[Rfam]
RNA: Plastid-ycf2 5UTR RNA
RNA sequence: AUGGAUCCAAUAGGAGUUGAACGUGUGAAUUCGCCAAUCAUGAGUUGGGUGCUUUUACCAUUCAUCCAUGGAU
Numbered sequence: 001a002u003g004g005a006u007c008c009a010a011u012a013g014g015a016g017u018u019g020a021a022c023g024u025g026u027g028a029a030u031u032c033g034c035c036a037a038u039c040a041u042g043a044g045u046u047g048g049g050u051g052c053u054u055u056u057a058c059c060a061u062u063c064a065u066c067c068a069u070g071g072a073u
Base pairs, nucleotide, nucleotide: 005073006072007071008070010026011025012024014022040069041068042067044066046064047063048062049061050060051059